[Rfam]
RNA sequence: AAUGUAAAUUAACAAAAAAGAGGAACUUGAAAUGACAUACACACAAUUUUCAUUGUUGUUGAUCAAGGUGGACCUACAUUAGCUUUUCGGCUAAAAUAUGUAGGUCCUAUUUGACAACAGUCAUUUCGAGGACCAUGAGACGUCCUCAGGGGCGUCUUUUU
Numbered sequence: 001a002a003u004g005u006a007a008a009u010u011a012a013c014a015a016a017a018a019a020g021a022g023g024a025a026c027u028u029g030a031a032a033u034g035a036c037a038u039a040c041a042c043a044c045a046a047u048u049u050u051c052a053u054u055g056u057u058g059u060u061g062a063u064c065a066a067g068g069u070g071g072a073c074c075u076a077c078a079u080u081a082g083c084u085u086u087u088c089g090g091c092u093a094a095a096a097u098a099u100g101u102a103g104g105u106c107c108u109a110u111u112u113g114a115c116a117a118c119a120g121u122c123a124u125u126u127c128g129a130g131g132a133c134c135a136u137g138a139g140a141c142g143u144c145c146u147c148a149g150g151g152g153c154g155u156c157u158u159u160u161u
Base pairs, nucleotide, nucleotide: 031125032124033123034122035121036120043056044055045054046053047052070107071106073104074103075102076101077100078099079098080093081092082091083090084089128147129146130145131144132143133142
RNA: leu/phe leader RNA from Lactococcus